[Rfam]
RNA sequence: CUGCAGUCGGUCAAGCCGACUGGGCGCCUUUGCUGGUGUGUGGUGUGCGGUGGCCGCGGCAGCAGCCUCCUCGGUGGAGCACGCAGCUUGUUGCUCGUAGGAGCUGCCCCAAGGGACCUUGGAGACCCUG
Numbered sequence: 001c002u003g004c005a006g007u008c009g010g011u012c013a014a015g016c017c018g019a020c021u022g023g024g025c026g027c028c029u030u031u032g033c034u035g036g037u038g039u040g041u042g043g044u045g046u047g048c049g050g051u052g053g054c055c056g057c058g059g060c061a062g063c064a065g066c067c068u069c070c071u072c073g074g075u076g077g078a079g080c081a082c083g084c085a086g087c088u089u090g091u092u093g094c095u096c097g098u099a100g101g102a103g104c105u106g107c108c109c110c111a112a113g114g115g116a117c118c119u120u121g122g123a124g125a126c127c128c129u130g
Stems, first nucleotide, its partner, number of pairs: 002049004019044004025038004073118003084106006
Small nucleolar RNA SNORA70: a 130-nucleotide RNA from Cavia porcellus. Gene Ontology terms of the family: RNA processing and nucleolus. Rfam classes the family as an H/ACA-box small nucleolar RNA. The source organism's lineage runs through Eukaryota, Euteleostomi, Amniota, Caviidae and Cavia. On this family, see Charette and Gray, IUBMB Life 2000: "Pseudouridine in RNA: what, where, how, and why". Rfam describes the family as follows. snoRNA U70 seems to be exclusive to mammals and is a member of the H/ACA class of snoRNA which contain H (ANANNA) and ACA box motifs. The base pairs follow the family's consensus structure, which was predicted with PFOLD. Rfam 15.1 lists 5,173 matches to the family in 383 species.